[Rfam]
RNA sequence: GGGAUGUGAUGAAUAGUCAUAAUUUGCAAAUGAAAAUGCGAGAGAUGGGUGUCCACCCUAAAGCCUGUUACGACAAUUGGGCACUCUCCUCCUAUACCAUCUGAUCCC
Numbered sequence: 001g002g003g004a005u006g007u008g009a010u011g012a013a014u015a016g017u018c019a020u021a022a023u024u025u026g027c028a029a030a031u032g033a034a035a036a037u038g039c040g041a042g043a044g045a046u047g048g049g050u051g052u053c054c055a056c057c058c059u060a061a062a063g064c065c066u067g068u069u070a071c072g073a074c075a076a077u078u079g080g081g082c083a084c085u086c087u088c089c090u091c092c093u094a095u096a097c098c099a100u101c102u103g104a105u106c107c108c
Stems, first nucleotide, its partner, number of pairs: 001108004014099001016097002023042005047086007065079001067077002
Rfam assigns this 108-nucleotide RNA sequence from Malus baccata to the family "Small nucleolar RNA Z279/snoR105/snoR108". Rfam links the family to the GO terms nucleolus and RNA processing. Pairs were carried over by alignment from the consensus structure, which was predicted with PFOLD. The source organism's lineage runs through Eukaryota, Streptophyta, Streptophytina, Tracheophyta and Malus. From the family's description: This family includes the plant snoRNAs known as Z279, snoR105 and snoR108.